[Rfam]
RNA sequence: AGGCCUGAAAUCAGGCGAGGUUACCCGCUGAACUUAAGCAUAUUAUUAAGCGGAGGAGAAGAAAAUAACUAUGAUUCCCUUAGUAACGGCGAGUGAACUGGGAUCAGCUCAAAGUGGAAAUCAACUGCUCUUCACUGAGCUGUUGACUUGUAGCCUCGAGAGGCGUUACCAGUGGAAGCGCAGGGUUAAUUUCUUGGGAAAGAACAUCAUAGAGGGUGAGAAUCCCGUCCUUCCCCUGCUUUUUUGUUCCACGUACGGUACGCUUUUAUAGAGUCGCGUUCAUCGGGAUUUGAGCGCAAAAUGUGUGGUAGGUUUCACAUAAAGCUAAGUACUGGCGCGAGACCGAUAGCAAACAAGUACCGUGAGGGAAAGAUGAAAAGUUCUUUGGAAAGAGAGUUAAAAGUGCCUGAAAUUGCUGAAAAGGAAG
Dot-bracket structure: .......................((((((.....((....))......))))).).........((....))...((((......((.....)).....))))..((((.....((.((.(((((.(((........))).))))).)).)).......((((((.((((.((((((..((((((.....((((......))))...(...)..((.......))........)))))).......))))))....)))))))).))........(((((((........))))))).....(((((........)))))..)))).................................((....))...............((((....)))).................................
Numbered sequence: 001a002g003g004c005c006u007g008a009a010a011u012c013a014g015g016c017g018a019g020g021u022u023a024c025c026c027g028c029u030g031a032a033c034u035u036a037a038g039c040a041u042a043u044u045a046u047u048a049a050g051c052g053g054a055g056g057a058g059a060a061g062a063a064a065a066u067a068a069c070u071a072u073g074a075u076u077c078c079c080u081u082a083g084u085a086a087c088g089g090c091g092a093g094u095g096a097a098c099u100g101g102g103a104u105c106a107g108c109u110c111a112a113a114g115u116g117g118a119a120a121u122c123a124a125c126u127g128c129u130c131u132u133c134a135c136u137g138a139g140c141u142g143u144u145g146a147c148u149u150g151u152a153g154c155c156u157c158g159a160g161a162g163g164c165g166u167u168a169c170c171a172g173u174g175g176a177a178g179c180g181c182a183g184g185g186u187u188a189a190u191u192u193c194u195u196g197g198g199a200a201a202g203a204a205c206a207u208c209a210u211a212g213a214g215g216g217u218g219a220g221a222a223u224c225c226c227g228u229c230c231u232u233c234c235c236c237u238g239c240u241u242u243u244u245u246g247u248u249c250c251a252c253g254u255a256c257g258g259u260a261c262g263c264u265u266u267u268a269u270a271g272a273g274u275c276g277c278g279u280u281c282a283u284c285g286g287g288a289u290u291u292g293a294g295c296g297c298a299a300a301a302u303g304u305g306u307g308g309u310a311g312g313u314u315u316c317a318c319a320u321a322a323a324g325c326u327a328a329g330u331a332c333u334g335g336c337g338c339g340a341g342a343c344c345g346a347u348a349g350c351a352a353a354c355a356a357g358u359a360c361c362g363u364g365a366g367g368g369a370a371a372g373a374u375g376a377a378a379a380g381u382u383c384u385u386u387g388g389a390a391a392g393a394g395a396g397u398u399a400a401a402a403g404u405g406c407c408u409g410a411a412a413u414u415g416c417u418g419a420a421a422a423g424g425a426a427g
Stems, first nucleotide, its partner, number of pairs: 024055001025053005035042002065072002076103004086094002106326004115152002118149002121146005127140003160267002162264004167260004172252006180239006191204004208212001215225002276297007303320005360367002383394004

The family of this 427-nucleotide part of an RNA from Neospora caninum is "Eukaryotic large subunit ribosomal RNA". Lineage of the source: Eukaryota > Coccidia > Eucoccidiorida > Sarcocystidae > Neospora. The family has 88 seed sequences and 107,465 matches in Rfam 15.1.